[Rfam]
RNA: Nuclear RNase P
Organism: Nematocida displodere
RNA sequence: GGUAGGUGGAAGCUUUCGAAAAGGGUUCGCCCUUAGGAAGGUCUGAGAGUAGCAAGCGCCGGGUCGAGAUGACUGGGGAGGAAACUCCUAUGGCGGCAGCUGACCAGAAAGAAGUGUUUCAUCCCGCACAGCGGUUGAGAUGGCUGUUGCUAGCUGGAUAGUUAAAUUCGAAAGGUGGGUCUAGGAGAACGCCCAUAACCCAAUUCAGACUACUCUCCACAUGCC
Numbered sequence: 001g002g003u004a005g006g007u008g009g010a011a012g013c014u015u016u017c018g019a020a021a022a023g024g025g026u027u028c029g030c031c032c033u034u035a036g037g038a039a040g041g042u043c044u045g046a047g048a049g050u051a052g053c054a055a056g057c058g059c060c061g062g063g064u065c066g067a068g069a070u071g072a073c074u075g076g077g078g079a080g081g082a083a084a085c086u087c088c089u090a091u092g093g094c095g096g097c098a099g100c101u102g103a104c105c106a107g108a109a110a111g112a113a114g115u116g117u118u119u120c121a122u123c124c125c126g127c128a129c130a131g132c133g134g135u136u137g138a139g140a141u142g143g144c145u146g147u148u149g150c151u152a153g154c155u156g157g158a159u160a161g162u163u164a165a166a167u168u169c170g171a172a173a174g175g176u177g178g179g180u181c182u183a184g185g186a187g188a189a190c191g192c193c194c195a196u197a198a199c200c201c202a203a204u205u206c207a208g209a210c211u212a213c214u215c216u217c218c219a220c221a222u223g224c225c
Stems, first nucleotide, its partner, number of pairs: 001225004008218003013174007021034005043208005051151004061074002064072002076089005096147007175196006